Rfam assigns this 117-nucleotide RNA from Noviherbaspirillum galbum to the family "ALIL pseudoknot". It scores 108 bits against the family's covariance model.
RNA sequence: UGCUUUUUUCGCCCAGGCGGAGCUCGACCGCCGAUUCAAAUCUUGAAGUCUUUCGUCGAUCACCAUCGCGAUAUGUAUGGAGUUGAGCCGCUCUGCAAGGUUCUGCAGAUCGCCCCA
Numbered sequence: 001u002g003c004u005u006u007u008u009u010c011g012c013c014c015a016g017g018c019g020g021a022g023c024u025c026g027a028c029c030g031c032c033g034a035u036u037c038a039a040a041u042c043u044u045g046a047a048g049u050c051u052u053u054c055g056u057c058g059a060u061c062a063c064c065a066u067c068g069c070g071a072u073a074u075g076u077a078u079g080g081a082g083u084u085g086a087g088c089c090g091c092u093c094u095g096c097a098a099g100g101u102u103c104u105g106c107a108g109a110u111c112g113c114c115c116c117a
Stems, first nucleotide, its partner, number of pairs: 016032005078117003082113001089112002092109006
Rfam 15.1 lists 2,146 matches to the family in 1,098 species.
Pairs were carried over by alignment from the consensus structure, which is taken from published work.
It is annotated as a cis-regulatory element.